[Rfam]
RNA: Plant signal recognition particle RNA
Organism: Panicum miliaceum
RNA sequence: GCCGAGCCAAGUAGCGAUGGCUUGUAACCCGAGCGGGGGCAUUAAGGUGGUGCGGAUGCCUCGUGUGGCGCUUUGGGCCUGGACCUUGCGGCUGCACUCUGCGGCCCGCCCGUUCCAAGUUGCGUAGUUGGGCUGCGGCGCCUUGGCGAAGGCCUCGGCGUCUCAGCACCUAGAGCGGUGGGCAAUGCGUGAGGCUGGUUUCACAGAGCAGCGAAUACCACCCGCUUCCAACGGUGGGAGGAUAACGGGCCGCUGCACCACGGGUCCGCGUGUGGCCCAUGCGUCCUCUUUGGCAGACCACCAUCUUU
Dot-bracket structure: (((((((((........))))))....(((....))))))...(((((((((.(..((((..(.(.((.((.(.((.(..((((((...(..((((....((((((((.((.(((((.((((.(.(((.(.((((.((((((..(((....)))..)))))).)))).)(....).(((((....(.(((....(((......)))....))).)..))))).))).)))))..)))))))....)))))))))))).)..))))))......).)).).)).)).).)..))))..)))))))))).
Numbered sequence: 001g002c003c004g005a006g007c008c009a010a011g012u013a014g015c016g017a018u019g020g021c022u023u024g025u026a027a028c029c030c031g032a033g034c035g036g037g038g039g040c041a042u043u044a045a046g047g048u049g050g051u052g053c054g055g056a057u058g059c060c061u062c063g064u065g066u067g068g069c070g071c072u073u074u075g076g077g078c079c080u081g082g083a084c085c086u087u088g089c090g091g092c093u094g095c096a097c098u099c100u101g102c103g104g105c106c107c108g109c110c111c112g113u114u115c116c117a118a119g120u121u122g123c124g125u126a127g128u129u130g131g132g133c134u135g136c137g138g139c140g141c142c143u144u145g146g147c148g149a150a151g152g153c154c155u156c157g158g159c160g161u162c163u164c165a166g167c168a169c170c171u172a173g174a175g176c177g178g179u180g181g182g183c184a185a186u187g188c189g190u191g192a193g194g195c196u197g198g199u200u201u202c203a204c205a206g207a208g209c210a211g212c213g214a215a216u217a218c219c220a221c222c223c224g225c226u227u228c229c230a231a232c233g234g235u236g237g238g239a240g241g242a243u244a245a246c247g248g249g250c251c252g253c254u255g256c257a258c259c260a261c262g263g264g265u266c267c268g269c270g271u272g273u274g275g276c277c278c279a280u281g282c283g284u285c286c287u288c289u290u291u292g293g294c295a296g297a298c299c300a301c302c303a304u305c306u307u308u
Stems, first nucleotide, its partner, number of pairs: 001040003004023006028037003044307009054298001057295004063289001065287001067285002070282002073279001075277002078274001081267006090259001093257004101253008110241002113239005119232004124228001126226003130169001132167004137162006145154003170175001177222005186215001188213003195206003